[Rfam]
Nucleotides: 582
Base pairs, nucleotide, nucleotide: 001473002472003470004469005468007467008466009465010464011463012462013461015457016456019421020420021419022418023417024314026312027311028310029309030308031307032306033305034303035302040055041054042053043052064298065297066296067295068294069293070292077127078126079124080123081122082121083120087102088101090099091098092097106119108117109116130287131286133285134284135283136282139281140280141276142275143274144272146270147269151190152189153188154187155186156185157166158165159164169182170181171180172179196264197263198262199261201232202231203230204229205228206227207226211221212220235255236254238252239251240250241249242248318373319372320371321370322369323368324367331362332361333360336355337354341350342349343348380411385406386405387404388403389402390401391400427449428448429447430446431445432444433443476581478578481574482573486568487567488566489565491563492562493561496558497557498556499555500554501553504550505549506548507547512543514541515540516539517538519537520536521535522534525532526531
Number, partner (000 for none) and nucleotide at each position: 001473u002472g003470a004469c005468g006000g007467g008466g009465g010464c011463c012462c013461g014000c015457a016456c017000a018000a019421g020420c021419a022418g023417u024314g025000g026312a027311g028310u029309a030308u031307g032306u033305g034303g035302u036000u037000u038000a039000a040055u041054u042053c043052g044000a045000a046000g047000c048000a049000a050000c051000g052043c053042g054041a055040a056000g057000a058000a059000c060000c061000u062000u063000a064298c065297c066296a067295g068294g069293u070292c071000u072000u073000g074000a075000c076000a077127u078126c079124c080123a081122a082121c083120u084000a085000a086000c087102g088101a089000a090099g091098c092097a093000g094000a095000g096000a097092u098091g099090c100000a101088u102087c103000a104000g105000g106119u107000g108117c109116c110000c111000u112000u113000c114000g115000g116109g117108g118000a119106a120083a121082g122081u123080u124079g125000a126078g127077a128000c129000a130287g131286g132000u133285g134284g135283u136282g137000c138000a139281u140280g141276g142275u143274u144272g145000u146270c147269g148000u149000c150000a151190g152189c153188u154187c155186g156185u157166g158165u159164c160000g161000u162000g163000a164159g165158a166157u167000g168000u169182u170181g171180g172179g173000u174000u175000a176000a177000g178000u179172c180171c181170c182169g183000c184000a185156a186155c187154g188153a189152g190151c191000g192000c193000a194000a195000c196264c197263c198262c199261u200000g201232u202231g203230a204229u205228u206227a207226g208000u209000u210000g211221c212220u213000a214000c215000g216000c217000a218000a219000g220212a221211g222000c223000a224000c225000u226207c227206u228205a229204a230203u231202c232201a233000g234000a235255c236254u237000g238252c239251c240250g241249u242248u243000g244000a245000c246000a247000a248242a249241a250240c251239g252238g253000a254236g255235g256000a257000a258000g259000g260000u261199g262198g263197g264196g265000a266000c267000g268000a269147c270146g271000u272144c273000a274143a275142a276141u277000c278000a279000u280140c281139a282136u283135g284134c285133c286131c287130u288000u289000u290000a291000u292070g293069a294068c295067c296066u297065g298064g299000g300000c301000u302035a303034c304000a305033c306032a307031c308030g309029u310028a311027c312026u313000a314024c315000a316000a317000u318373g319372g320371c321370u322369g323368u324367u325000a326000a327000c328000a329000a330000a331362g332361g333360g334000a335000a336355g337354c338000a339000a340000g341350a342349c343348c344000g345000c346000g347000a348343g349342g350341u351000g352000g353000a354337g355336c356000a357000a358000a359000a360333c361332c362331u363000a364000a365000a366000a367324a368323a369322c370321a371320g372319u373318c374000u375000c376000a377000g378000u379000u380411c381000g382000g383000a384000u385406c386405g387404c388403a389402g390401g391400c392000u393000g394000c395000a396000a397000c398000c399000c400391g401390c402389c403388u404387g405386c406385g407000u408000g409000a410000a411380g412000u413000u414000g415000g416000a417023a418022u419021u420020g421019c422000u423000a424000g425000u426000a427449a428448u429447c430446g431445c432444g433443g434000a435000u436000c437000a438000u439000c440000a441000u442000g443433c444432c445431g446430c447429g448428g449427u450000g451000a452000a453000u454000a455000c456016g457015u458000u459000c460000c461013c462012g463011g464010g465009c466008c467007u468005u469004g470003u471000a472002c473001a474000c475000a476581c477000c478578g479000c480000c481574c482573g483000u484000c485000a486568c487567a488566c489565c490000a491563u492562g493561g494000g495000a496558g497557c498556c499555g500554g501553u502000a503000a504550u505549a506548c507547c508000c509000g510000a511000a512543g513000u514541c515540a516539g517538u518000a519537g520536c521535c522534u523000a524000a525532c526531c527000g528000c529000a530000a531526g532525g533000g534522a535521g536520g537519c538517g539516c540515u541514g542000c543512c544000g545000a546000a547507g548506g549505u550504a551000g552000g553501a554500u555499u556498g557497g558496c559000g560000a561493c562492u563491g564000g565489g566488g567487u568486g569000a570000a571000g572000u573482c574481g575000u576000a577000a578478c579000a580000a581476g582000g

This 582-nucleotide part of an RNA from Clostridium sp. KNHs216 belongs to the Rfam family "Bacterial small subunit ribosomal RNA".
The match comes from Rfam's covariance-model search (1577 bits).
Lineage of the source: Bacteria > Bacillati > Eubacteriales > Clostridiaceae > Clostridium.
Clan: SSU clan.
Its family is annotated with ribosome and structural constituent of ribosome in the Gene Ontology.
The base pairs follow the family's consensus structure, which is taken from published work.